Rfam assigns this 386-nucleotide RNA sequence from Candidatus Malacoplasma girerdii to the family "Bacterial RNase P class B". Rfam's curators write: Ribonuclease P (RNase P) is a ubiquitous endoribonuclease, found in archaea, bacteria and eukarya as well as chloroplasts and mitochondria. Its best characterised activity is the generation of mature 5'-ends of tRNAs by cleaving the 5'-leader elements of precursor-tRNAs. Cellular RNase Ps are ribonucleoproteins. RNA from bacterial RNase Ps retains its catalytic activity in the absence of the protein subunit, i.e. it is a ribozyme. Isolated eukaryotic and archaeal RNase P RNA has not been shown to retain its catalytic function, but is still essential for the catalytic activity of the holoenzyme. Although the archaeal and eukaryotic holoenzyme s have a much greater protein content than the bacterial ones, the RNA cores from all the three lineages are homologous -- helices corresponding to P1, P2, P3, P4, and P10/11 are common to all cellular RNase P RNAs. Yet, there is considerable sequence variation, particularly among the eukaryotic RNAs. The organism belongs to Malacoplasma, within Bacteria. Clan: RNaseP clan. A reference for the family is Frank and Pace (1998), "Ribonuclease P: unity and diversity in a tRNA processing ribozyme", Annu Rev Biochem.
RNA sequence: UGUAUGAGUCAAUUGCUGUUAAGUACUAGUACUUAAUAGAGGAAAGUCCAUGCUUGCACAUACUGAAAUGUAUGUAACGAUUUAGCUAACUUAAUCAAUAAAGUUAGGCACCAAAUUUAUUUUGGUGACGGAUAUAACAACUUCUAAGGUAAUUAUUACUAUGAAGAUUGUUAUGAACGGACCACAGAGACGAGUUAGAUGGAAACAUCUAAGUGAAACGCGGUAACCCCCUAAAGUAAGAAACCGUAAGUUAAUCCUGUAAUGGGAAUGGUAACGGGAAUGUGAUGAAUGGAAUUUAAAGUAACAUUCAUUAUGACACAAACAAUUGUGUAGAUAAAUAAUUGACACCUAAUUUUUAAAUUAGAUACAGAACAUGGCUUAUGAUU
Numbered sequence: 001u002g003u004a005u006g007a008g009u010c011a012a013u014u015g016c017u018g019u020u021a022a023g024u025a026c027u028a029g030u031a032c033u034u035a036a037u038a039g040a041g042g043a044a045a046g047u048c049c050a051u052g053c054u055u056g057c058a059c060a061u062a063c064u065g066a067a068a069u070g071u072a073u074g075u076a077a078c079g080a081u082u083u084a085g086c087u088a089a090c091u092u093a094a095u096c097a098a099u100a101a102a103g104u105u106a107g108g109c110a111c112c113a114a115a116u117u118u119a120u121u122u123u124g125g126u127g128a129c130g131g132a133u134a135u136a137a138c139a140a141c142u143u144c145u146a147a148g149g150u151a152a153u154u155a156u157u158a159c160u161a162u163g164a165a166g167a168u169u170g171u172u173a174u175g176a177a178c179g180g181a182c183c184a185c186a187g188a189g190a191c192g193a194g195u196u197a198g199a200u201g202g203a204a205a206c207a208u209c210u211a212a213g214u215g216a217a218a219c220g221c222g223g224u225a226a227c228c229c230c231c232u233a234a235a236g237u238a239a240g241a242a243a244c245c246g247u248a249a250g251u252u253a254a255u256c257c258u259g260u261a262a263u264g265g266g267a268a269u270g271g272u273a274a275c276g277g278g279a280a281u282g283u284g285a286u287g288a289a290u291g292g293a294a295u296u297u298a299a300a301g302u303a304a305c306a307u308u309c310a311u312u313a314u315g316a317c318a319c320a321a322a323c324a325a326u327u328g329u330g331u332a333g334a335u336a337a338a339u340a341a342u343u344g345a346c347a348c349c350u351a352a353u354u355u356u357u358a359a360a361u362u363a364g365a366u367a368c369a370g371a372a373c374a375u376g377g378c379u380u381a382u383g384a385u386u
Stems, first nucleotide, its partner, number of pairs: 004386001007382001008346007016039008044380003048377005053240005058075006081235005086107006108129001109127006130230002133173001136172001141166004148160005179228002181224003195212007244277003281315009316331006349364006